[Rfam]
RNA sequence: AAGAACGGAUCGAACCUGUUGCGUGUCGAACUUGGUUCGAGUUCGAGCAACGGGUCGAUCCAAGCCA
Numbered sequence: 001a002a003g004a005a006c007g008g009a010u011c012g013a014a015c016c017u018g019u020u021g022c023g024u025g026u027c028g029a030a031c032u033u034g035g036u037u038c039g040a041g042u043u044c045g046a047g048c049a050a051c052g053g054g055u056c057g058a059u060c061c062a063a064g065c066c067a
Stems, first nucleotide, its partner, number of pairs: 003065001007061007015054008026046008
Shown here is a 67-nucleotide RNA sequence from Drosophila persimilis, a member of the family "mir-2518 microRNA precursor family". It scores 78 bits against the family's covariance model. Its family is annotated with miRNA-mediated post-transcriptional gene silencing and RISC complex in the Gene Ontology. The literature on the family includes a 2010 paper in Nat Genet by Berezikov et al., "Evolutionary flux of canonical microRNAs and mirtrons in Drosophila".